Rfam assigns this 90-nucleotide RNA from Labrus bergylta to the family "Small nucleolar RNA SNORD60".
By type it is a C/D-box small nucleolar RNA.
Clan: SNORD60 clan.
RNA sequence: AGCCAAUAACGACAAAAACUAAAUAACUUUUCUGACACCUUGUAUGAGAGCUGCACUGCAGCCCUUGAUUCUAAAUCUGAUCUGAGGCUC
Dot-bracket structure: ((((.............................................(((((...))))).......................)))).